U7 small nuclear RNA: a 58-nucleotide RNA sequence from Synaphobranchus kaupii. Pairs were carried over by alignment from the consensus structure, which was predicted with PFOLD. The organism belongs to Synaphobranchus, within Eukaryota.

RNA sequence: UGGAAUUUUUGCUUUUUAGUAUUUUUCCAGUAGGUUUCCUGAUAAACAGGAAGCCCCC
Dot-bracket structure: ................................(((((((((.....)))))))))...

The match comes from Rfam's covariance-model search (45 bits).